[Rfam]
RNA sequence: CCGAGCAGCCGGGGUGGCAGCGGUACCCUGAACCAGCAAUCCGCUAUAGCUGGGGUGAUAUCAAACUGAGGGUUAUCUCUUUGCGGAGCAGCCCUUCAUAAGUGGCGUUGACGUUUGGGUCUUACGCAACAGGAAUUUACGAACCGGGUCAGGUCAGGAAUGGAGCAGCCCUAAGUAAAAGCUCUUGUGUGCCGUGAGGGUGCCUGGACCGAGUUAACUGUGGAGGUAACGUCCGUGGACUGGACUCGAAGGGCGAUGCUCGG
Numbered sequence: 001c002c003g004a005g006c007a008g009c010c011g012g013g014g015u016g017g018c019a020g021c022g023g024u025a026c027c028c029u030g031a032a033c034c035a036g037c038a039a040u041c042c043g044c045u046a047u048a049g050c051u052g053g054g055g056u057g058a059u060a061u062c063a064a065a066c067u068g069a070g071g072g073u074u075a076u077c078u079c080u081u082u083g084c085g086g087a088g089c090a091g092c093c094c095u096u097c098a099u100a101a102g103u104g105g106c107g108u109u110g111a112c113g114u115u116u117g118g119g120u121c122u123u124a125c126g127c128a129a130c131a132g133g134a135a136u137u138u139a140c141g142a143a144c145c146g147g148g149u150c151a152g153g154u155c156a157g158g159a160a161u162g163g164a165g166c167a168g169c170c171c172u173a174a175g176u177a178a179a180a181g182c183u184c185u186u187g188u189g190u191g192c193c194g195u196g197a198g199g200g201u202g203c204c205u206g207g208a209c210c211g212a213g214u215u216a217a218c219u220g221u222g223g224a225g226g227u228a229a230c231g232u233c234c235g236u237g238g239a240c241u242g243g244a245c246u247c248g249a250a251g252g253g254c255g256a257u258g259c260u261c262g263g
Stems, first nucleotide, its partner, number of pairs: 001263007008056003011029006018022001033053005061256002066251002070247005077242001080239007091227001094225006102218002104215003113209008121198006127189002130187005136179005146171004154163003
Rfam assigns this 263-nucleotide RNA from Roseburia inulinivorans to the family "Bacterial large signal recognition particle RNA". Rfam links the family to the GO terms signal recognition particle, plasma membrane targeting and SRP-dependent cotranslational protein targeting to membrane, signal sequence recognition. It scores 177 bits against the family's covariance model. From the family's description: The signal recognition particle (SRP) is a universally conserved ribonucleoprotein involved in the co-translational targeting of proteins to membranes. The base pairs follow the family's consensus structure, which is taken from published work. Rfam classes the family as a non-coding RNA gene.